RNA sequence: AUGCUUGCGGCGGCGCGGCGGAACACCUAUAUGUAUCCGUGCAGGGGAAGCUUCGGCUUCCUGGCUAUGGCGAUAAACGGAACGUAGAAUAAGCGUUGUGGACCCGGGGGCGGUACCCGGCGUCUCCACCAGGUUUCUUCCGGCUUUGCGGUCGGGGGAUAUGGGGACGAAACAGGCUCGACACGCGUGGUAAAACCGUUCCUUUUGCCCGGCAUUGUACCACCGUCAUCGGGCUAAAUCACAAGUGCCAACGAUAACUCUGAGGUGCUCGCUGUCGCUGCAUAAGCGAUAAGCGCGGUUCGGGAGGGCACCGGGCAACAGAAGCCCUCCCA
Number, nucleotide and partner (000 for none) at each position: 001a000002u000003g000004c000005u000006u000007g000008c000009g000010g000011c000012g000013g000014c000015g000016c000017g000018g000019c000020g000021g000022a000023a000024c000025a000026c000027c000028u000029a000030u000031a000032u000033g000034u000035a000036u000037c000038c000039g000040u000041g065042c064043a000044g062045g061046g060047g059048a058049a000050g000051c000052u000053u000054c000055g000056g000057c000058u048059u047060c046061c045062u044063g000064g042065c041066u000067a000068u000069g209070g208071c207072g206073a205074u000075a000076a000077a000078c000079g202080g201081a200082a199083c198084g197085u000086a000087g000088a000089a000090u000091a000092a000093g000094c187095g186096u185097u000098g184099u183100g182101g000102a000103c000104c120105c119106g118107g117108g116109g000110g000111c000112g000113g000114u000115a000116c108117c107118c106119g105120g104121c169122g168123u167124c166125u165126c164127c163128a000129c000130c000131a000132g000133g000134u000135u000136u000137c000138u000139u000140c000141c000142g000143g000144c000145u000146u000147u000148g000149c000150g000151g000152u000153c000154g000155g000156g000157g000158g000159a000160u000161a000162u000163g127164g126165g125166g124167a123168c122169g121170a000171a000172a000173c000174a000175g000176g000177c000178u000179c000180g000181a000182c100183a099184c098185g096186c095187g094188u000189g000190g000191u000192a000193a000194a000195a000196c000197c084198g083199u082200u081201c080202c079203u000204u000205u073206u072207g071208c070209c069210c225211g224212g223213c000214a000215u236216u000217g234218u000219a000220c232221c231222a000223c212224c211225g210226u000227c000228a000229u000230c000231g221232g220233g000234c217235u000236a215237a000238a000239u000240c000241a000242c000243a000244a000245g000246u000247g000248c000249c000250a000251a000252c000253g000254a000255u000256a000257a000258c000259u000260c000261u000262g000263a000264g000265g000266u000267g000268c000269u000270c000271g000272c000273u000274g000275u000276c000277g000278c000279u000280g000281c000282a000283u000284a000285a000286g000287c000288g000289a000290u000291a000292a000293g000294c000295g000296c313297g312298g311299u310300u000301c000302g000303g329304g328305a000306g326307g325308g000309c000310a299311c298312c297313g296314g000315g000316c000317a000318a000319c000320a000321g000322a000323a000324g000325c307326c306327c000328u304329c303330c000331c000332a000
The record is a 332-nucleotide RNA from Acetobacter oeni, which matches "Alphaproteobacteria transfer-messenger RNA" in Rfam. Rfam classes the family as a non-coding RNA gene. A search with the family's covariance model found it, with a score of 228 bits.